[Rfam]
RNA sequence: GGGCUUGUACUGGUUUCGACAGGGAUCUUGAAGAUGGAGAAGCUAUCCGCAGGCUGAUGCGUCAAAUCGCAAACUUAAAAUUAAACGCUAACGAUAAUUACGAAUUAGCUGCGGCCUAAUUGCCGCAUGUCAGCCCCGGGGCACUCACACCUCAGGGAUCUGGCAUCAAACAUGUGAGAAACGAUGACGGCAAAGCUUUGAGCCGUCAGGCGUAUCAUGAAGCUACUGAACCCGCAGGGAUGUCCGUUUCCGUGCGGCAGAGGGAAUGAAAAAGAACGGACUAUGAUAGUAGAAGUACAUGGGAUAGGUUUUUGGACGCGGGUUCGAUUCCCGCCAGGUCCAUAU
Number, nucleotide and partner (000 for none) at each position: 001g341002g340003g339004c338005u337006u336007g335008u000009a000010c000011u000012g000013g000014u000015u000016u000017c000018g000019a000020c314021a313022g312023g311024g310025a309026u308027c307028u306029u000030g000031a000032a000033g000034a300035u299036g298037g000038a296039g000040a000041a000042g000043c289044u288045a287046u286047c285048c061049g060050c059051a058052g000053g000054c000055u071056g070057a000058u051059g050060c049061g048062u000063c000064a000065a000066a000067u000068c000069g000070c056071a055072a000073a000074c000075u000076u000077a000078a000079a000080a000081u000082u000083a000084a000085a000086c000087g000088c000089u000090a000091a000092c000093g000094a000095u000096a000097a000098u000099u000100a000101c000102g000103a000104a000105u000106u000107a000108g000109c000110u127111g126112c125113g124114g123115c122116c000117u000118a000119a000120u000121u000122g115123c114124c113125g112126c111127a110128u165129g164130u163131c162132a161133g160134c000135c157136c156137c155138g153139g152140g151141g150142c000143a000144c178145u177146c176147a175148c174149a173150c141151c140152u139153c138154a000155g137156g136157g135158a000159u000160c133161u132162g131163g130164c129165a128166u000167c000168a000169a000170a000171c000172a000173u149174g148175u147176g146177a145178g144179a000180a000181a000182c000183g000184a000185u208186g207187a206188c205189g204190g203191c202192a000193a000194a224195g223196c222197u221198u220199u219200g000201a000202g191203c190204c189205g188206u187207c186208a185209g000210g000211c000212g000213u000214a000215u000216c000217a000218u000219g199220a198221a197222g196223c195224u194225a000226c263227u262228g000229a000230a000231c000232c257233c256234g255235c254236a000237g000238g251239g250240a249241u000242g281243u280244c279245c278246g000247u274248u273249u240250c239251c238252g000253u000254g235255c234256g233257g232258c000259a000260g000261a000262g227263g226264g000265a000266a000267u000268g000269a000270a000271a000272a000273a248274g247275a000276a000277c000278g245279g244280a243281c242282u000283a000284u000285g047286a046287u045288a044289g043290u000291a000292g000293a000294a000295g000296u038297a000298c036299a035300u034301g000302g000303g000304a000305u000306a028307g027308g026309u025310u024311u023312u022313u021314g020315g000316a000317c000318g334319c333320g332321g331322g330323u000324u000325c000326g000327a000328u000329u000330c322331c321332c320333g319334c318335c007336a006337g005338g004339u003340c002341c001342a000343u000344a000345u000
Rfam assigns this 345-nucleotide RNA from Lachnoclostridium sp. An76 to the family "transfer-messenger RNA". A reference for the family is Williams and Bartel (1996), "Phylogenetic analysis of tmRNA secondary structure", RNA. Rfam's curators write: Bacterial tmRNA, also known as 10Sa RNA or SsrA, is named for its dual tRNA and mRNA-like properties. Its role is to liberate the mRNA from a stalled ribosome. To accomplish this part of the tmRNA is used as a reading frame that ends in a translation stop signal. The broken mRNA is replaced in the ribosome by the tmRNA and translation of the tmRNA leads to addition of a proteolysis tag to the incomplete protein enabling recognition by a protease. The organism belongs to Lachnoclostridium, within Bacteria. A search with the family's covariance model found it, with a score of 143 bits. It is annotated as a non-coding RNA gene.